[Rfam]
RNA sequence: GAUCUUCGGACGUUCCUUCCUCCUCCCUGGAACGUCUGUUGGAACGGCGGCACUCCUCCUCCCCGUCGCUGUUCGGUCAUUUUUAAAGCCUGCCGCACCUCCUCCCGCGGCAGGCUUUUUUU
Numbered sequence: 001g002a003u004c005u006u007c008g009g010a011c012g013u014u015c016c017u018u019c020c021u022c023c024u025c026c027c028u029g030g031a032a033c034g035u036c037u038g039u040u041g042g043a044a045c046g047g048c049g050g051c052a053c054u055c056c057u058c059c060u061c062c063c064c065g066u067c068g069c070u071g072u073u074c075g076g077u078c079a080u081u082u083u084u085a086a087a088g089c090c091u092g093c094c095g096c097a098c099c100u101c102c103u104c105c106c107g108c109g110g111c112a113g114g115c116u117u118u119u120u121u122u
Stems, first nucleotide, its partner, number of pairs: 007038010042074010086117011
RNA: Alphaproteobacterial ar14
Organism: Rhizobium sp. P32RR-XVIII